[Rfam]
RNA: MIR535 microRNA precursor family
Organism: Hibiscus trionum
RNA sequence: CACAUUAUUUGACAAUGAGAGAGAGCACACCUGUUUCCAUUCAUGCAAGGGCAUGGAUGUGUACAAGUGUGCUCUCUCUCAUUGUCAUAUAUAU
Number, nucleotide and partner (000 for none) at each position: 001c000002a000003c000004a000005u000006u000007a000008u000009u000010u087011g086012a085013c084014a083015a000016u081017g080018a000019g000020a077021g076022a000023g074024a000025g072026c071027a070028c069029a068030c067031c000032u065033g064034u063035u000036u000037c000038c000039a000040u000041u000042c000043a000044u000045g000046c000047a000048a000049g000050g000051g000052c000053a000054u000055g000056g000057a000058u000059g000060u000061g000062u000063a034064c033065a032066a000067g030068u029069g028070u027071g026072c025073u000074c023075u000076c021077u020078c000079u000080c017081a016082u000083u014084g013085u012086c011087a010088u000089a000090u000091a000092u000093a000094u000